[Rfam]
RNA sequence: GUGCACAACAAGCCAAAUCCCUGGGCACCGGGGAGCGGGGGAACCAUUUCUUUGGGUGAAUUGAUCUCGUAACAGAGGGAUCAUAGGGAACCUUCAAACCGAAUCCUUAAGCUAACCACGCAGGCAUUUGGAAGGGGAAUU
Numbered sequence: 001g002u003g004c005a006c007a008a009c010a011a012g013c014c015a016a017a018u019c020c021c022u023g024g025g026c027a028c029c030g031g032g033g034a035g036c037g038g039g040g041g042a043a044c045c046a047u048u049u050c051u052u053u054g055g056g057u058g059a060a061u062u063g064a065u066c067u068c069g070u071a072a073c074a075g076a077g078g079g080a081u082c083a084u085a086g087g088g089a090a091c092c093u094u095c096a097a098a099c100c101g102a103a104u105c106c107u108u109a110a111g112c113u114a115a116c117c118a119c120g121c122a123g124g125c126a127u128u129u130g131g132a133a134g135g136g137g138a139a140u141u
Stems, first nucleotide, its partner, number of pairs: 012125003018034007035121003039117002046052001054106003062083007086100002
Dot-bracket structure: ...........(((...(((((((...)))))))(((.((.....(.....).(((.....(((((((........)))))))..((...........))...))).........)).))).)))................
Rfam assigns this 141-nucleotide RNA sequence from Paenibacillus stellifer to the family "c-di-AMP riboswitch aptamer (ydaO/yuaA leader)". Taxonomically the source falls in Paenibacillus (Bacteria, Bacillati, Bacillota, Paenibacillaceae). Gene Ontology terms of the family: regulation of gene expression and cyclic-di-AMP binding. It scores 67 bits against the family's covariance model.